[Rfam]
RNA: Small nucleolar RNA R160
Organism: Salvia splendens
RNA sequence: AGCAAACUGAUGAAGUUAUCAAUCCGAAUUCUCAUGUGGAUUUUUCUUGAUCUUCAAAGUCCUCUGAUUGCU
Numbered sequence: 001a002g003c004a005a006a007c008u009g010a011u012g013a014a015g016u017u018a019u020c021a022a023u024c025c026g027a028a029u030u031c032u033c034a035u036g037u038g039g040a041u042u043u044u045u046c047u048u049g050a051u052c053u054u055c056a057a058a059g060u061c062c063u064c065u066g067a068u069u070g071c072u
Base pairs, nucleotide, nucleotide: 001072002071003070004069005068